The family of this 81-nucleotide RNA from Nakamurella panacisegetis is "Actino-pnp RNA". A search with the family's covariance model found it, with a score of 60 bits. Lineage of the source: Bacteria > Actinomycetes > Nakamurellales > Nakamurellaceae > Nakamurella.
RNA sequence: GCCGGUCCUCGGUAGUGGCCGUCGGAACUCCAGUCGCACCAGCGCGGCAGUGAGGUCCGCCGGCUUCGAUCGACGGCCGGU
Numbered sequence: 001g002c003c004g005g006u007c008c009u010c011g012g013u014a015g016u017g018g019c020c021g022u023c024g025g026a027a028c029u030c031c032a033g034u035c036g037c038a039c040c041a042g043c044g045c046g047g048c049a050g051u052g053a054g055g056u057c058c059g060c061c062g063g064c065u066u067c068g069a070u071c072g073a074c075g076g077c078c079g080g081u
Stems, first nucleotide, its partner, number of pairs: 001081007009073005017065005023059004028055002
The family's consensus secondary structure is taken from published work.